This 72-nucleotide sequence from Pantoea ananatis belongs to the Rfam family "osmY RNA".

RNA sequence: GCAGCAGCACUGUUUGCUGCUCUUGCGCCCACAGUUUUGGGCGAGUUAACAGAUAGAAGGAUGAUAUCGAUG
Number, nucleotide and partner (000 for none) at each position: 001g000002c000003a021004g020005c019006a018007g017008c016009a015010c000011u000012g000013u000014u000015u009016g008017c007018u006019g005020c004021u003022c000023u000024u000025g000026c043027g042028c041029c040030c039031a038032c000033a000034g000035u000036u000037u000038u031039g030040g029041g028042c027043g026044a000045g000046u000047u000048a000049a000050c000051a000052g000053a000054u000055a000056g000057a000058a000059g000060g000061a000062u000063g000064a000065u000066a000067u000068c000069g000070a000071u000072g000

Notes: Lineage of the source: Bacteria > Pseudomonadati > Enterobacterales > Erwiniaceae > Pantoea ananatis.